[Rfam]
RNA sequence: GGUCAUGAGUGCCAGCAAAGUUCCGUGAUCUGCCUGAGGAAGCUCAGGGACGCUCGGAACGCCUGCCCCGGCUUGCUGGACGGCAACCCUCCUCCGCGGUGGGGUGCCCCGGGUGACGACCGGGCCCUGGCCACCAGGUCAGGCGCAAGUGCGGGUA
Number, nucleotide and partner (000 for none) at each position: 001g121002g120003u119004c118005a000006u000007g000008a000009g081010u000011g000012c079013c078014a077015g076016c075017a000018a000019a073020g072021u071022u070023c000024c000025g000026u000027g000028a000029u000030c000031u000032g000033c000034c000035u000036g000037a000038g000039g000040a000041a000042g000043c000044u000045c000046a000047g000048g000049g000050a000051c000052g000053c000054u000055c000056g000057g000058a000059a000060c000061g000062c000063c000064u000065g000066c000067c000068c000069c000070g022071g021072c020073u019074u000075g016076c015077u014078g013079g012080a000081c009082g108083g107084c106085a000086a000087c104088c103089c102090u000091c099092c098093u000094c000095c000096g000097c000098g092099g091100u000101g000102g089103g088104g087105u000106g084107c083108c082109c000110c000111g000112g000113g000114u000115g000116a000117c000118g004119a003120c002121c001122g000123g000124g146125c145126c143127c142128u141129g140130g139131c138132c137133a000134c000135c000136a000137g132138g131139u130140c129141a128142g127143g126144c000145g125146c124147a000148a000149g000150u000151g000152c000153g000154g000155g000156u000157a000